[Rfam]
freshwater-2 RNA: an 82-nucleotide RNA sequence. By type it is a cis-regulatory element.
RNA sequence: ACUAGCGCAAAGUUAGUUUAUGGGGACACCACCCCGUACCUAGGAGAACUAGGAUUGGACUUCUUGAAGGAGAAAACAAAUG
Numbered sequence: 001a002c003u004a005g006c007g008c009a010a011a012g013u014u015a016g017u018u019u020a021u022g023g024g025g026a027c028a029c030c031a032c033c034c035c036g037u038a039c040c041u042a043g044g045a046g047a048a049c050u051a052g053g054a055u056u057g058g059a060c061u062u063c064u065u066g067a068a069g070g071a072g073a074a075a076a077c078a079a080a081u082g
Stems, first nucleotide, its partner, number of pairs: 001017006019038007039053004